[Rfam]
RNA: permuted transfer-messenger RNA
Organism: Rhizobium sp. Q54
RNA sequence: GGUGAUAAAUGUAAUUCGCAAUAAACGUUAUGGACCUGGGGGCGGUACCCAGCACCUCCACCAUUUCUCGUCGGCUUUUGAGCGUCUGCGUUGUUAGAAAUUUUUUUACUUCGGUCAUGUAUGUCCUGAUACAUUACCUCAUAAAAAAAUUUCUGCCUAGCAUCCAUCUCAAAAUCCUUAGAGAAGUAUCGAUAUAUUUGGGGGUGAAUCAGCUUUCGACAUUCGCUAAAGGAAUUAACUUUGCCCGGUUGAGAAACUGCCGGCCGCGUGGUGCGAACCUCGUGACAUCCGUUCAAAAAAAGUAAAUGCAAACGAUAACUUUGCUAAUGACAAUUUCGAACUUGCUCCAGCGACAAAA
Numbered sequence: 001g002g003u004g005a006u007a008a009a010u011g012u013a014a015u016u017c018g019c020a021a022u023a024a025a026c027g028u029u030a031u032g033g034a035c036c037u038g039g040g041g042g043c044g045g046u047a048c049c050c051a052g053c054a055c056c057u058c059c060a061c062c063a064u065u066u067c068u069c070g071u072c073g074g075c076u077u078u079u080g081a082g083c084g085u086c087u088g089c090g091u092u093g094u095u096a097g098a099a100a101u102u103u104u105u106u107u108a109c110u111u112c113g114g115u116c117a118u119g120u121a122u123g124u125c126c127u128g129a130u131a132c133a134u135u136a137c138c139u140c141a142u143a144a145a146a147a148a149a150u151u152u153c154u155g156c157c158u159a160g161c162a163u164c165c166a167u168c169u170c171a172a173a174a175u176c177c178u179u180a181g182a183g184a185a186g187u188a189u190c191g192a193u194a195u196a197u198u199u200g201g202g203g204g205u206g207a208a209u210c211a212g213c214u215u216u217c218g219a220c221a222u223u224c225g226c227u228a229a230a231g232g233a234a235u236u237a238a239c240u241u242u243g244c245c246c247g248g249u250u251g252a253g254a255a256a257c258u259g260c261c262g263g264c265c266g267c268g269u270g271g272u273g274c275g276a277a278c279c280u281c282g283u284g285a286c287a288u289c290c291g292u293u294c295a296a297a298a299a300a301a302g303u304a305a306a307u308g309c310a311a312a313c314g315a316u317a318a319c320u321u322u323g324c325u326a327a328u329g330a331c332a333a334u335u336u337c338g339a340a341c342u343u344g345c346u347c348c349a350g351c352g353a354c355a356a357a358a
Stems, first nucleotide, its partner, number of pairs: 001245005014235004026225002030222003036052005053206007246262004